[Rfam]
RNA sequence: GGACAGUGACGAUUGAUAUUAAGGUCUCGUUCGUCGUAAUAUCGGCCUUAACCAUCCGAUUUGCCGACCAUUCUGUUAUAUCACCACCCAUAUUCUGAGUCC
Numbered sequence: 001g002g003a004c005a006g007u008g009a010c011g012a013u014u015g016a017u018a019u020u021a022a023g024g025u026c027u028c029g030u031u032c033g034u035c036g037u038a039a040u041a042u043c044g045g046c047c048u049u050a051a052c053c054a055u056c057c058g059a060u061u062u063g064c065c066g067a068c069c070a071u072u073c074u075g076u077u078a079u080a081u082c083a084c085c086a087c088c089c090a091u092a093u094u095c096u097g098a099g100u101c102c
Stems, first nucleotide, its partner, number of pairs: 001102004050062002
A member of the RNA family "Small nucleolar RNA Z43" from Microthlaspi erraticum, 102 nucleotides long.
Pairs were carried over by alignment from the consensus structure, which was predicted with PFOLD.
Rfam links the family to the GO terms nucleolus and RNA processing.
The literature on the family includes a 2003 paper in Nucleic Acids Res by Chen et al., "The high diversity of snoRNAs in plants: identification and comparative study of 120 snoRNA genes from Oryza sativa".
Rfam classes the family as a C/D-box small nucleolar RNA.
Lineage of the source: Eukaryota > Euphyllophyta > Spermatophyta > eudicotyledons > Microthlaspi.